[Rfam]
RNA: mir-31 microRNA precursor family
Organism: Patiria miniata
RNA sequence: GGGUGUGGAGAAGGCAAGAUGUUGGCAUAGCUGUUUGAUUCAAAUUCUCAGCUGUGCUCACAUAUUGCCAUUUAUGCACUUG
Numbered sequence: 001g002g003g004u005g006u007g008g009a010g011a012a013g014g015c016a017a018g019a020u021g022u023u024g025g026c027a028u029a030g031c032u033g034u035u036u037g038a039u040u041c042a043a044a045u046u047c048u049c050a051g052c053u054g055u056g057c058u059c060a061c062a063u064a065u066u067g068c069c070a071u072u073u074a075u076g077c078a079c080u081u082g
Stems, first nucleotide, its partner, number of pairs: 005077003009073003013069005019063003024058008